U4atac minor spliceosomal RNA: a 127-nucleotide sequence from Lates calcarifer. Rfam classes the family as a spliceosomal small nuclear RNA. U4atac is an essential component of the minor U12-type spliceosome complex which is required for removal of the rarer class of eukaryotic introns (AT-AC, U12-type). The literature on the family includes a 2005 paper in RNA by Lorkovic et al., "Evolutionary conservation of minor U12-type spliceosome between plants and humans". The base pairs follow the family's consensus structure, which is taken from published work.

RNA sequence: ACUUUCCUUGUCAUGGGGUGAGAGAGCUGCUCAAUGAACGCAUAGUGAGAGUAGCCCUGCUAACACCAUAGCAACACUCAUGCACCACCUGGGCUCCUGUCCAGAACAUGGUGCAAUUUUUGGAAAA
Numbered sequence: 001a002c003u004u005u006c007c008u009u010g011u012c013a014u015g016g017g018g019u020g021a022g023a024g025a026g027c028u029g030c031u032c033a034a035u036g037a038a039c040g041c042a043u044a045g046u047g048a049g050a051g052u053a054g055c056c057c058u059g060c061u062a063a064c065a066c067c068a069u070a071g072c073a074a075c076a077c078u079c080a081u082g083c084a085c086c087a088c089c090u091g092g093g094c095u096c097c098u099g100u101c102c103a104g105a106a107c108a109u110g111g112u113g114c115a116a117u118u119u120u121u122g123g124a125a126a127a
Stems, first nucleotide, its partner, number of pairs: 006018004020060001023058002026055007038046002082114006089104006